Notes: Bacterial RNase P class A: a 349-nucleotide RNA sequence from a Patescibacteria group bacterium. The source organism's lineage runs through Bacteria and Bacteria candidate phyla. A search with the family's covariance model found it, with a score of 341 bits. Rfam classes the family as a ribozyme.
RNA sequence: AGAGUCGGCUGAGCAGUCGCUGUUUUAUUGGUCAAACAAUAAAAGAGAGGAAAGUCCGGACUCCAUAGGGCGAAGUGCUAGGUAAUGCCUAGGGGGCGUGAGCCUACGGAAAGUGCCACAGAAAAUAUACCGCCUGUUUUUCAGGUAAGGGUGAAAUGGUGCGGUAAGAGCGCACCGCGCGGCUGGCAACAGACGUGGCAGGGUAAACCCCACUUGGAGCAAGAUCAAAUAGAGAGACUUAGGCAUGGCCCGUGCCGUCUCUGGGUAGAUUGCUUGAGCGUUUAAGUGAUUAAACGCCUAGAUGAAUGGCUGCUCUCGACAAAAUCCGGCUUAUAGGCUGACUCUUUCU
Dot-bracket structure: ((((((((((((((((((.((.((((((((......)))))))).))....[[[.[[[[[((((...[[[[.((((((((((.....)))))(((((....)))).)((...(((((............(((((((.....)))))..)).......((((((.......))))))(((((.(((....))).)))).)..)))..)))))))))))))...((((......((((((...(((((.]]]]))))))))))).....))))......((((((((....))))))))..........)))))))..........]]]]]]]].).))))))))))....